This 97-nucleotide sequence from Micropruina glycogenica belongs to the Rfam family "Bacterial small signal recognition particle RNA". About the family: The signal recognition particle (SRP) is a universally conserved ribonucleoprotein involved in the co-translational targeting of proteins to membranes. The match comes from Rfam's covariance-model search (59 bits). Rfam classes the family as a non-coding RNA gene. The source organism's lineage runs through Bacteria, Actinomycetes, Propionibacteriales, Nocardioidaceae and Micropruina. The family's consensus secondary structure is taken from published work.

RNA sequence: CCAAGGUCCCCGCGCGGCGGUAUCUCGCCCAACUCCCCCAGGGUCGAAAGACAGCAAGGGUAAGUGAGCUCUUCCGGGUGCGCGGGGGCCCCUUCGC
Dot-bracket structure: ....(((((((((((..(((.(.(((((......(((.....(((....))).....)))...)))))...).))).)..)))))))))).......